[Rfam]
RNA: c-di-AMP riboswitch aptamer (ydaO/yuaA leader)
Organism: Paenibacillus albilobatus
RNA sequence: GCCCGAUCAAGGCCGAAUUCCUUGGCACCGGGAAGCGGGGGAACCACUUUGGGUGAAUUGAUCUCGCAGUAAAGGGAUCAUAGGGGACGACCUUCAACCGAAUCCUUAAGCUAACCUCGCAGGCAACAUGGAAGGGGAUU
Numbered sequence: 001g002c003c004c005g006a007u008c009a010a011g012g013c014c015g016a017a018u019u020c021c022u023u024g025g026c027a028c029c030g031g032g033a034a035g036c037g038g039g040g041g042a043a044c045c046a047c048u049u050u051g052g053g054u055g056a057a058u059u060g061a062u063c064u065c066g067c068a069g070u071a072a073a074g075g076g077a078u079c080a081u082a083g084g085g086g087a088c089g090a091c092c093u094u095c096a097a098c099c100g101a102a103u104c105c106u107u108a109a110g111c112u113a114a115c116c117u118c119g120c121a122g123g124c125a126a127c128a129u130g131g132a133a134g135g136g137g138a139u140u
Stems, first nucleotide, its partner, number of pairs: 012124003018034005035120006051105003059080007083099002